[Rfam]
RNA sequence: CAGAACACUAAGCCGAAUUCCAUUUCGCCCCAUGGCGGGAAUGGAAGCCGGGGAACCGAGAACGUUUCCUGGGGUGAAAGGGAAGCAAGGAGCGCGCGUAGAGCGUGCCGGAGCAACCCGAGGUGAAUUCCUGCACCGAACCCGACAGCUAACCCGGUAGGCGUCACUGGAAGAUAUU
Numbered sequence: 001c002a003g004a005a006c007a008c009u010a011a012g013c014c015g016a017a018u019u020c021c022a023u024u025u026c027g028c029c030c031c032a033u034g035g036c037g038g039g040a041a042u043g044g045a046a047g048c049c050g051g052g053g054a055a056c057c058g059a060g061a062a063c064g065u066u067u068c069c070u071g072g073g074g075u076g077a078a079a080g081g082g083a084a085g086c087a088a089g090g091a092g093c094g095c096g097c098g099u100a101g102a103g104c105g106u107g108c109c110g111g112a113g114c115a116a117c118c119c120g121a122g123g124u125g126a127a128u129u130c131c132u133g134c135a136c137c138g139a140a141c142c143c144g145a146c147a148g149c150u151a152a153c154c155c156g157g158u159a160g161g162c163g164u165c166a167c168u169g170g171a172a173g174a175u176a177u178u
Base pairs, nucleotide, nucleotide: 012162013161014160018046019045020044021043022042023041024040025039026038047158048157049156050155051154052153057071058070072143073142074141080119081118082117122137123136124135125134
Dot-bracket structure: ...........(((...(((((((((...........)))))))))((((((....((...........))(((.....(((..................................)))..((((........))))...))).........)))))).)))................